The family of this 389-nucleotide RNA sequence from Gracilibacillus dipsosauri is "Bacterial RNase P class B". The source organism's lineage runs through Bacteria, Bacillati, Caryophanales, Bacillaceae and Gracilibacillus. The match comes from Rfam's covariance-model search (308 bits). The family is grouped with related families in Rfam's "RNaseP clan".
RNA sequence: AAUGUUGUAGUAAUCGCUGCAUACGUUCAGUGUGUAGAGGAAAGUCCAUGCUCACACAAGCUGCGAUGCUUGUAGUGUUCGUGCUUGACGAAUGCAUAAGUCAAGGUAACCAAUAUGGUUAACGGCAGAGAAAAUACCUGUGUCUGUUAUCAGAUAUGGUAUGAGUAUCUUGAAAGUGCCACAGUGACGUAGCUAAGUGGGAAACUACUUAGGUGGAACGCGGUAAACCCCUCGAGUGAGCAACCCAAAUUUUGGUAGGGGCAUCUUCUUAGUAGGGAAUUGGAACCGAAGGAAGGACAAGCUUAGUUGCUUGUAGACAGAUGAUUACACCUUAUGUACGAGGCUGACCACCGUUUGGAGUACGAAGGAACAGAACAUGGCUUACAGAC
Numbered sequence: 001a002a003u004g005u006u007g008u009a010g011u012a013a014u015c016g017c018u019g020c021a022u023a024c025g026u027u028c029a030g031u032g033u034g035u036a037g038a039g040g041a042a043a044g045u046c047c048a049u050g051c052u053c054a055c056a057c058a059a060g061c062u063g064c065g066a067u068g069c070u071u072g073u074a075g076u077g078u079u080c081g082u083g084c085u086u087g088a089c090g091a092a093u094g095c096a097u098a099a100g101u102c103a104a105g106g107u108a109a110c111c112a113a114u115a116u117g118g119u120u121a122a123c124g125g126c127a128g129a130g131a132a133a134a135u136a137c138c139u140g141u142g143u144c145u146g147u148u149a150u151c152a153g154a155u156a157u158g159g160u161a162u163g164a165g166u167a168u169c170u171u172g173a174a175a176g177u178g179c180c181a182c183a184g185u186g187a188c189g190u191a192g193c194u195a196a197g198u199g200g201g202a203a204a205c206u207a208c209u210u211a212g213g214u215g216g217a218a219c220g221c222g223g224u225a226a227a228c229c230c231c232u233c234g235a236g237u238g239a240g241c242a243a244c245c246c247a248a249a250u251u252u253u254g255g256u257a258g259g260g261g262c263a264u265c266u267u268c269u270u271a272g273u274a275g276g277g278a279a280u281u282g283g284a285a286c287c288g289a290a291g292g293a294a295g296g297a298c299a300a301g302c303u304u305a306g307u308u309g310c311u312u313g314u315a316g317a318c319a320g321a322u323g324a325u326u327a328c329a330c331c332u333u334a335u336g337u338a339c340g341a342g343g344c345u346g347a348c349c350a351c352c353g354u355u356u357g358g359a360g361u362a363c364g365a366a367g368g369a370a371c372a373g374a375a376c377a378u379g380g381c382u383u384a385c386a387g388a389c
Base pairs, nucleotide, nucleotide: 004389005388006387007385008329010328011327012326013325014324015323017037018036019035020034021033022032042383043382044381046380047379048378049377050376051240052239053238054237055236056073057072058071059070060069061068079235080234081233083231084105085104086103087102088101089100106123107121108120109119110118111117112116124230125229127170128169129168135161136160137159138158142155143154144153145152146151176228177227178224179223180222193212194211195210196209197208198207199206200205244260245259246258264296265295266294267293268292269291270290297314298313299312300311301310302309331368332367333366335364336363337362338361339360